Pseudomon-groES RNA: a 109-nucleotide RNA from Pseudomonas sp. ABC1.
[Rfam]
RNA sequence: GCAUUUAGCCUAACAGCUGUCCAUUGCGACAGGCGUUCUUCUGCAGCCUGCCCAGGCAGGCCGCAACCGGCGAUGCCGGAUUUUCCAACCCGCCGAUGAUGGCAUCGGC
Numbered sequence: 001g002c003a004u005u006u007a008g009c010c011u012a013a014c015a016g017c018u019g020u021c022c023a024u025u026g027c028g029a030c031a032g033g034c035g036u037u038c039u040u041c042u043g044c045a046g047c048c049u050g051c052c053c054a055g056g057c058a059g060g061c062c063g064c065a066a067c068c069g070g071c072g073a074u075g076c077c078g079g080a081u082u083u084u085c086c087a088a089c090c091c092g093c094c095g096a097u098g099a100u101g102g103c104a105u106c107g108g109c
Base pairs, nucleotide, nucleotide: 017032018031019030020029021028042065043064044063046061047060048059049058050057067079068078069077070076092109093108094107095106096105097104
The match comes from Rfam's covariance-model search (51 bits). By type it is a cis-regulatory element.